[Rfam]
RNA sequence: ACUCAUACCUUACAGGGGAGAUACCAUGAUCAUGAAAGUGGUUUUUCCAGGGUAAGGCUCAUCUAUUGCACUUUGGAUGUGCUGAUCCCUAUGAUUUCCCCAAAUGUGGGGAACUCAACUGCAUAAUUCGUGUUAAUGGGGGAUUGCAUUUGUGCUUUCCCUGG
Number, nucleotide and partner (000 for none) at each position: 001a000002c000003u000004c000005a000006u000007a000008c000009c000010u000011u000012a000013c121014a120015g119016g048017g047018g046019a045020g044021a043022u000023a042024c041025c040026a039027u038028g000029a000030u000031c000032a000033u000034g000035a000036a000037a000038g027039u026040g025041g024042u023043u021044u020045u019046u018047c017048c016049a090050g089051g088052g087053u000054a086055a000056g083057g082058c081059u000060c079061a078062u077063c076064u075065a000066u000067u000068g000069c000070a000071c000072u000073u000074u000075g064076g063077a062078u061079g060080u000081g058082c057083u056084g000085a000086u054087c052088c051089c050090u049091a000092u117093g116094a115095u113096u112097u111098c000099c109100c108101c000102a000103a000104a000105u000106g000107u000108g100109g099110g000111g097112a096113a095114c000115u094116c093117a092118a000119c015120u014121g013122c000123a000124u000125a000126a000127u000128u000129c000130g000131u000132g000133u000134u000135a000136a000137u163138g162139g161140g160141g159142g000143a158144u000145u000146g155147c154148a153149u000150u000151u000152g000153u148154g147155c146156u000157u000158u143159c141160c140161c139162u138163g137164g000
RNA: U1 spliceosomal RNA